Shown here is a 118-nucleotide RNA, a member of the family "SAM (S-adenosyl methionine) riboswitch aptamer".
RNA sequence: GAUCACGAGAACCGGUUCAACAAGCUCUGACUGGCCGGUCGGCAACCCUUUCCGCUGUGACGGGGUGCCUCAGAUGAUGAUCCGGUCUUCAGCACACCGCUGGAGGCAAGCACGGCGU
Numbered sequence: 001g002a003u004c005a006c007g008a009g010a011a012c013c014g015g016u017u018c019a020a021c022a023a024g025c026u027c028u029g030a031c032u033g034g035c036c037g038g039u040c041g042g043c044a045a046c047c048c049u050u051u052c053c054g055c056u057g058u059g060a061c062g063g064g065g066u067g068c069c070u071c072a073g074a075u076g077a078u079g080a081u082c083c084g085g086u087c088u089u090c091a092g093c094a095c096a097c098c099g100c101u102g103g104a105g106g107c108a109a110g111c112a113c114g115g116c117g118u
Stems, first nucleotide, its partner, number of pairs: 001082004009040001011039006023032002041069003046065003051060002085107009